This 54-nucleotide RNA sequence from Sinocyclocheilus grahami belongs to the Rfam family "UnaL2 LINE 3' element".

[Rfam]
RNA sequence: CAUUCCCCCAAUUGUAAGUCGCUUUGGAGAAAAGCGUCUGCUAAAUGACUAAAU
Numbered sequence: 001c002a003u004u005c006c007c008c009c010a011a012u013u014g015u016a017a018g019u020c021g022c023u024u025u026g027g028a029g030a031a032a033a034g035c036g037u038c039u040g041c042u043a044a045a046u047g048a049c050u051a052a053a054u
Stems, first nucleotide, its partner, number of pairs: 013043001014041003020036006